The family of this 87-nucleotide RNA sequence from Sorghum bicolor is "Small nucleolar RNA snoR8a". The family has 7 seed sequences and 956 matches in Rfam 15.1. Gene Ontology terms of the family: RNA processing and nucleolus. The source organism's lineage runs through Eukaryota, Streptophyta, Liliopsida, Panicoideae and Sorghum.
[Rfam]
RNA sequence: UUGGGUGCAGUGAUUAUAAAAACAUUCCUCGUCCUGAUGGGAGGUCCCCCGUGAUCGACUCCUAUACACCCAUAGAAUCUGAGCACC
Numbered sequence: 001u002u003g004g005g006u007g008c009a010g011u012g013a014u015u016a017u018a019a020a021a022a023c024a025u026u027c028c029u030c031g032u033c034c035u036g037a038u039g040g041g042a043g044g045u046c047c048c049c050c051g052u053g054a055u056c057g058a059c060u061c062c063u064a065u066a067c068a069c070c071c072a073u074a075g076a077a078u079c080u081g082a083g084c085a086c087c
Stems, first nucleotide, its partner, number of pairs: 003087002006085002
A search with the family's covariance model found it, with a score of 72 bits.